This 80-nucleotide RNA from Alligator sinensis belongs to the Rfam family "Mammalian CPEB3 ribozyme".

[Rfam]
RNA sequence: AGAGGUCACAAGUUUGCGGCCACAGCAGAAGUAUUCAUGGCACAGCCCUGUCAGAUUCUAAAGAAUCUGUGAAUUCUGCU
Numbered sequence: 001a002g003a004g005g006u007c008a009c010a011a012g013u014u015u016g017c018g019g020c021c022a023c024a025g026c027a028g029a030a031g032u033a034u035u036c037a038u039g040g041c042a043c044a045g046c047c048c049u050g051u052c053a054g055a056u057u058c059u060a061a062a063g064a065a066u067c068u069g070u071g072a073a074u075u076c077u078g079c080u
Base pairs, nucleotide, nucleotide: 016048018047019046020045024080025079026078027077028076029075030074031043032042052069053068054067055066056065057064058063